[Rfam]
RNA sequence: CUGUGCUGCCACGGGAGUCCGGUAGUGCGCCGGGCUGAGAGGAGGGCUCGCUAGCCCUCGACCGUCCACACCUGAUCCGGGUCAUGCCGGCGCAGGGAGGGCCGGUUCCUUUGGUG
Numbered sequence: 001c002u003g004u005g006c007u008g009c010c011a012c013g014g015g016a017g018u019c020c021g022g023u024a025g026u027g028c029g030c031c032g033g034g035c036u037g038a039g040a041g042g043a044g045g046g047c048u049c050g051c052u053a054g055c056c057c058u059c060g061a062c063c064g065u066c067c068a069c070a071c072c073u074g075a076u077c078c079g080g081g082u083c084a085u086g087c088c089g090g091c092g093c094a095g096g097g098a099g100g101g102c103c104g105g106u107u108c109c110u111u112u113g114g115u116g
Stems, first nucleotide, its partner, number of pairs: 006104001008102003011065004017035007042059007071096004077090004

Rfam assigns this 116-nucleotide RNA sequence from Labedaea rhizosphaerae to the family "TPP riboswitch aptamer (THI element)". Rfam links the family to the GO term thiamine pyrophosphate binding. It scores 63 bits against the family's covariance model.